Record summary:
The record is a 38-nucleotide RNA from Coffea arabica, which matches "Plastid psbT antisense RNA" in Rfam. The family has 93 seed sequences and 1,866 matches in Rfam 15.1. Plastid-psbT-asRNA is an antisense RNA (asRNA) motif reported in Plastids It has been shown that psbT expression is controlled by two antisense RNAs originated from psbN transcription by the nuclear-encoded polymerase (NEP), in which the short antisense RNA hybridizes to psbT CDS, thereby stabilizing psbT transcript while blocking its translation during photooxidative stress. NCBI's taxonomy places the organism under Eukaryota, Euphyllophyta, Ixoroideae, Coffeeae, Coffea. A search with the family's covariance model found it, with a score of 56 bits.

RNA sequence: GUAGUUGGAUCCCCAAAUUUUUGGAAUGCUCCGAAUUC
Numbered sequence: 001g002u003a004g005u006u007g008g009a010u011c012c013c014c015a016a017a018u019u020u021u022u023g024g025a026a027u028g029c030u031c032c033g034a035a036u037u038c
Stems, first nucleotide, its partner, number of pairs: 003018001005016004020035006